Shown here is a 92-nucleotide sequence from Acer yangbiense, a member of the family "Small nucleolar RNA snoR27". Rfam 15.1 lists 649 matches to the family in 212 species.
RNA sequence: UUUGGAUCCGUGAUGUUGUUUAAUUUACUGCGUUAUCUAUCUGCAACUUCCUAAUAGGAAUUGAAGAUGAAUGUAAUAUACUGAGAUCCAAA
Numbered sequence: 001u002u003u004g005g006a007u008c009c010g011u012g013a014u015g016u017u018g019u020u021u022a023a024u025u026u027a028c029u030g031c032g033u034u035a036u037c038u039a040u041c042u043g044c045a046a047c048u049u050c051c052u053a054a055u056a057g058g059a060a061u062u063g064a065a066g067a068u069g070a071a072u073g074u075a076a077u078a079u080a081c082u083g084a085g086a087u088c089c090a091a092a
Stems, first nucleotide, its partner, number of pairs: 001092007
The base pairs follow the family's consensus structure, which was predicted with WAR. NCBI's taxonomy places the organism under Eukaryota, Viridiplantae, Streptophytina, Magnoliopsida, Acer. For this family Rfam cites "Multiple snoRNA gene clusters from Arabidopsis" (Brown et al., RNA, 2001).